[Rfam]
RNA sequence: GCUGUACGUGAUGACAACUGGCUCCCUCUACUGAACCUGGUGAGGAAAACUGCCACGUCACCAUUUCUGACUUACAGC
Number, nucleotide and partner (000 for none) at each position: 001g078002c077003u076004g075005u074006a073007c000008g000009u000010g000011a000012u000013g000014a000015c000016a000017a000018c000019u000020g000021g000022c000023u000024c000025c000026c000027u000028c000029u000030a000031c000032u000033g000034a000035a000036c000037c000038u000039g000040g000041u000042g000043a000044g000045g000046a000047a000048a000049a000050c000051u000052g000053c000054c000055a000056c000057g000058u000059c000060a000061c000062c000063a000064u000065u000066u000067c000068u000069g000070a000071c000072u000073u006074a005075c004076a003077g002078c001
The family of this 78-nucleotide RNA from Dasypus novemcinctus is "Small nucleolar RNA SNORD100".
The source organism's lineage runs through Eukaryota, Bilateria, Deuterostomia, Dasypodidae and Dasypus.
Its Rfam clan is "SNORD100 clan".
The family's consensus secondary structure was predicted with RNAalifold.